Description:
Rfam assigns this 67-nucleotide RNA sequence from Cnephaeus nilssonii to the family "mir-9256 microRNA precursor family". The match comes from Rfam's covariance-model search (84 bits).
RNA sequence: ACAUACACUGAGUGGCCAGAUUAUUAUGAUCUCUGAAUACAUAAUAAUCUGGCCACUCAAUGUAUGA
Numbered sequence: 001a002c003a004u005a006c007a008c009u010g011a012g013u014g015g016c017c018a019g020a021u022u023a024u025u026a027u028g029a030u031c032u033c034u035g036a037a038u039a040c041a042u043a044a045u046a047a048u049c050u051g052g053c054c055a056c057u058c059a060a061u062g063u064a065u066g067a
Stems, first nucleotide, its partner, number of pairs: 004064004009059009019049010
Pairs were carried over by alignment from the consensus structure, which was predicted with RNAalifold. Gene Ontology terms of the family: miRNA-mediated post-transcriptional gene silencing and RISC complex.